[Rfam]
RNA sequence: UGCGCCUGGGCAGCGCACGGUCAGCUCCUCCUGAACUCCCCCAGGGCAGAAAUGCAGCAAGGGUAGGGGGUUGUAGCGACCGGUGCGUCUGCCUUUUU
Dot-bracket structure: .......((((((((((((((.........................................................)))).))))).)))))....